Description
mir-85 microRNA precursor family: a 66-nucleotide sequence from Caenorhabditis brenneri. Rfam 15.1 lists 8 matches to the family in 8 species. Gene Ontology terms of the family: RISC complex and miRNA-mediated post-transcriptional gene silencing. The sequence is in the family's curated seed alignment.
RNA sequence: CCGACUUUUCAAUAUUUUGAAACCAGUUAUUCUGAGAAUGGUUACAAAGUAUUUGAAAAGCCGUGC
Numbered sequence: 001c002c003g004a005c006u007u008u009u010c011a012a013u014a015u016u017u018u019g020a021a022a023c024c025a026g027u028u029a030u031u032c033u034g035a036g037a038a039u040g041g042u043u044a045c046a047a048a049g050u051a052u053u054u055g056a057a058a059a060g061c062c063g064u065g066c
Base pairs, nucleotide, nucleotide: 002063003062005060006059007058008057009056010055011053012052013051014050015049016048017047018046019045021043022042023041024040025039